Rfam assigns this 160-nucleotide RNA from Nannospalax galili to the family "U1 spliceosomal RNA". The family's RNA type in Rfam is spliceosomal small nuclear RNA. Lineage of the source: Eukaryota > Bilateria > Craniata > Teleostomi > Nannospalax. The family's consensus secondary structure is taken from published work. On this family, see Zwieb, Nucleic Acids Res 1997: "The uRNA database". The match comes from Rfam's covariance-model search (135 bits).
RNA sequence: AUACUUGCCUGGCAGGGGAGACACCAUGAUCAGGAAGGUGGUUUUCCCAGGGUGAGGCUUAUCCAUUGCACUUGGGAUGUGCUGGCCCCUGCGAUUUCCCCAAAUUCGGGAAACUCAGUUGCAUAAUUUGUGGUAGUGGGGGACUACGUUGUUGCCCUCU
Number, nucleotide and partner (000 for none) at each position: 001a000002u000003a000004c000005u000006u000007g000008c000009c000010u000011g000012g122013c121014a120015g119016g048017g047018g046019a045020g044021a043022c000023a042024c041025c040026a039027u038028g000029a000030u000031c000032a000033g000034g000035a000036a000037g000038g027039u026040g025041g024042u023043u021044u020045u019046c018047c017048c016049a090050g089051g088052g087053u000054g086055a000056g083057g082058c081059u000060u079061a078062u077063c076064c075065a000066u000067u000068g000069c000070a000071c000072u000073u000074g000075g064076g063077a062078u061079g060080u000081g058082c057083u056084g000085g000086c054087c052088c051089c050090u049091g000092c000093g116094a115095u113096u112097u111098c000099c109100c108101c000102a000103a000104a000105u000106u000107c000108g100109g099110g000111a097112a096113a095114c000115u094116c093117a000118g000119u015120u014121g013122c012123a000124u000125a000126a000127u000128u000129u000130g000131u000132g000133g000134u000135a000136g000137u000138g159139g158140g157141g156142g155143a000144c154145u000146a152147c000148g000149u000150u000151g000152u146153u000154g144155c142156c141157c140158u139159c138160u000